[Rfam]
RNA sequence: ACAGUACAAUCUGAUCAGGCGAUGAAUGCGAAUUCAUGGUGCCGGGCUGCUUCAAAUAGCGGCAGUGGGUGAGUGAUACACACAUCUACGGGACAGUA
Numbered sequence: 001a002c003a004g005u006a007c008a009a010u011c012u013g014a015u016c017a018g019g020c021g022a023u024g025a026a027u028g029c030g031a032a033u034u035c036a037u038g039g040u041g042c043c044g045g046g047c048u049g050c051u052u053c054a055a056a057u058a059g060c061g062g063c064a065g066u067g068g069g070u071g072a073g074u075g076a077u078a079c080a081c082a083c084a085u086c087u088a089c090g091g092g093a094c095a096g097u098a
Base pairs, nucleotide, nucleotide: 011096012095013094016092018043019042020041021040022037023036024035025034026033027032046063047062048061049060050059065089066088067087068086069085070084

Shown here is a 98-nucleotide RNA from Acetivibrio cellulolyticus, a member of the family "NiCo (Nickel/Cobalt) riboswitch aptamer". Rfam links the family to the GO terms metal ion homeostasis and cobalt ion binding. Rfam's curators put it in the seed alignment. The organism belongs to Acetivibrio cellulolyticus, within Bacteria. Clan: NiCo_riboswitches. Pairs were carried over by alignment from the consensus structure, which is taken from published work.